[Rfam]
RNA sequence: GCACGUCUUCAGGGCGGGGUUUGUUUCCCCACUGGUGGUAUAGUCCAUGAACCGUUAAUUCGGCCGAACUGGUGAAAUUCCAGUACCAACUGUCAAAGUCAGGAUGAAGAGAAGACAGAG
Numbered sequence: 001g002c003a004c005g006u007c008u009u010c011a012g013g014g015c016g017g018g019g020u021u022u023g024u025u026u027c028c029c030c031a032c033u034g035g036u037g038g039u040a041u042a043g044u045c046c047a048u049g050a051a052c053c054g055u056u057a058a059u060u061c062g063g064c065c066g067a068a069c070u071g072g073u074g075a076a077a078u079u080c081c082a083g084u085a086c087c088a089a090c091u092g093u094c095a096a097a098g099u100c101a102g103g104a105u106g107a108a109g110a111g112a113a114g115a116c117a118g119a120g
Base pairs, nucleotide, nucleotide: 005116006115007114008113009112010111017029018028019027031099032098033088034087035048036047037046038045043086044085052063053062068084069083070082071081072080090102091101092100
Rfam assigns this 120-nucleotide RNA from Floricoccus tropicus to the family "FMN riboswitch aptamer (RFN element)". The base pairs follow the family's consensus structure, which is taken from published work.